[Rfam]
RNA: c-sis internal ribosome entry site (IRES)
Organism: Orycteropus afer
RNA sequence: CGGAGCAGCCGCAGCUCACAGCGCAGAGGACGCCCAGAGCGGCCGGCGGACAGACCGACGGACUCGCGCCGCGUCCACCUGUCGGCCCGACCCGGCUGAGCGCGCACGCUGCGCGCGCCGAGCAGCCGUGCCCGCUGCCCAGGCCCUGCGCCAGGGCGCACACGCUCCGGCCCCCCCAUCUGGCCGGGGCAGGAGUUUGCACCUCUCCCUGCCCGGGUGUUCGGGCCGCCGCUGCAAAGCCAACUUUGGAAAAAGUUUUUUGGAGGAAGCUUGGGCUUUGAGGUGCCCAGCCUUGCGUUUUCUGAUUUUGGGGACAAUUCCAGAAAAUGUUGCAACAAAGCUAAGCCGGAGGGCAGAGGAAAACGCCUUUAGCCGGCGAGUGAAGACGAACCAUCGGCUGCCGCGUUCCUUUUCCUCUUGGAGGUUGGAGUCCUCUGGGCGCCCCCAUACGGCUAGACGCCUCGGCUGGUUCGCGACGCAGCCCCCCGGCCGUGGAUGCUCGCUCGGGCUCAGGAUCCGCACAGGUAGCGGCUGCUGCGGACCCUGGUCCCGCGCCCAGGCCCUCCCCAGCCCCCCAACGACGGAGCCCAGGC
Numbered sequence: 001c002g003g004a005g006c007a008g009c010c011g012c013a014g015c016u017c018a019c020a021g022c023g024c025a026g027a028g029g030a031c032g033c034c035c036a037g038a039g040c041g042g043c044c045g046g047c048g049g050a051c052a053g054a055c056c057g058a059c060g061g062a063c064u065c066g067c068g069c070c071g072c073g074u075c076c077a078c079c080u081g082u083c084g085g086c087c088c089g090a091c092c093c094g095g096c097u098g099a100g101c102g103c104g105c106a107c108g109c110u111g112c113g114c115g116c117g118c119c120g121a122g123c124a125g126c127c128g129u130g131c132c133c134g135c136u137g138c139c140c141a142g143g144c145c146c147u148g149c150g151c152c153a154g155g156g157c158g159c160a161c162a163c164g165c166u167c168c169g170g171c172c173c174c175c176c177c178a179u180c181u182g183g184c185c186g187g188g189g190c191a192g193g194a195g196u197u198u199g200c201a202c203c204u205c206u207c208c209c210u211g212c213c214c215g216g217g218u219g220u221u222c223g224g225g226c227c228g229c230c231g232c233u234g235c236a237a238a239g240c241c242a243a244c245u246u247u248g249g250a251a252a253a254a255g256u257u258u259u260u261u262g263g264a265g266g267a268a269g270c271u272u273g274g275g276c277u278u279u280g281a282g283g284u285g286c287c288c289a290g291c292c293u294u295g296c297g298u299u300u301u302c303u304g305a306u307u308u309u310g311g312g313g314a315c316a317a318u319u320c321c322a323g324a325a326a327a328u329g330u331u332g333c334a335a336c337a338a339a340g341c342u343a344a345g346c347c348g349g350a351g352g353g354c355a356g357a358g359g360a361a362a363a364c365g366c367c368u369u370u371a372g373c374c375g376g377c378g379a380g381u382g383a384a385g386a387c388g389a390a391c392c393a394u395c396g397g398c399u400g401c402c403g404c405g406u407u408c409c410u411u412u413u414c415c416u417c418u419u420g421g422a423g424g425u426u427g428g429a430g431u432c433c434u435c436u437g438g439g440c441g442c443c444c445c446c447a448u449a450c451g452g453c454u455a456g457a458c459g460c461c462u463c464g465g466c467u468g469g470u471u472c473g474c475g476a477c478g479c480a481g482c483c484c485c486c487c488g489g490c491c492g493u494g495g496a497u498g499c500u501c502g503c504u505c506g507g508g509c510u511c512a513g514g515a516u517c518c519g520c521a522c523a524g525g526u527a528g529c530g531g532c533u534g535c536u537g538c539g540g541a542c543c544c545u546g547g548u549c550c551c552g553c554g555c556c557c558a559g560g561c562c563c564u565c566c567c568c569a570g571c572c573c574c575c576c577a578a579c580g581a582c583g584g585a586g587c588c589c590a591g592g593c
Base pairs, nucleotide, nucleotide: 002241003240005235006234007233008232009231011229012228014226015225016224017223020221021220022219023208025206026205027204028203029202031158032157033156034155035154037152039151040150041149042144043143048093049092053086055085056084057083058082059081060080061079065073066072067071097141098140100138101137102135103134104131105130106129107128108127109120111118112117161199162198164196165195166194167193168192170190171189172188173187175183176182243256244255245254246253247252263568265566266565267564269561270560271559272558273557274556275555276554282504283503284502285501290499291498293495294494295493296492297491302489303488304487310486311485312484313483315481332341333340345377346376347375348374349373353370355368356367358364380479381478382477385474387473388472389471390470391469392468393467394465395464396463397462398456399455400453401452402451403450405448406447407429408428409427411424412423413422414421415420430440431439432438433437506550507549508548509547513543514542516541517540518539519538524536525535526534573592574591579586